Enterococcus sRNA 1300: a 207-nucleotide RNA from Paenibacillus apis. From the family's description: Expressed in mid and late exponential phases of growth. The family's consensus secondary structure was predicted with RNAfold. Rfam classes the family as a small RNA.
RNA sequence: ACACAUUCCAUGCGCAUUCGAUAAGCUGGCAAUAAAAAGCUGAUUUUUCCGCAAUUGUGGGCUUUUUUGCGUUGCUUAUUUUUACGUAUGGAGAGACAUAGAUUACGAUAUAGAUAGCUUAUUUGGCUAUGCCUUGUAUCGACGUGUCCUUAUUCGUGAUGAAUGCAGAUCUAAGUCCACAUAGUGGUUUGGAUCUGUAUUUUUUAU
Numbered sequence: 001a002c003a004c005a006u007u008c009c010a011u012g013c014g015c016a017u018u019c020g021a022u023a024a025g026c027u028g029g030c031a032a033u034a035a036a037a038a039g040c041u042g043a044u045u046u047u048u049c050c051g052c053a054a055u056u057g058u059g060g061g062c063u064u065u066u067u068u069g070c071g072u073u074g075c076u077u078a079u080u081u082u083u084a085c086g087u088a089u090g091g092a093g094a095g096a097c098a099u100a101g102a103u104u105a106c107g108a109u110a111u112a113g114a115u116a117g118c119u120u121a122u123u124u125g126g127c128u129a130u131g132c133c134u135u136g137u138a139u140c141g142a143c144g145u146g147u148c149c150u151u152a153u154u155c156g157u158g159a160u161g162a163a164u165g166c167a168g169a170u171c172u173a174a175g176u177c178c179a180c181a182u183a184g185u186g187g188u189u190u191g192g193a194u195c196u197g198u199a200u201u202u203u204u205u206a207u
Stems, first nucleotide, its partner, number of pairs: 006093009020080007029073001030069003034066004039062002046060002049057001094150002096147004104142001107140006114134001163200006170193002173190003177187004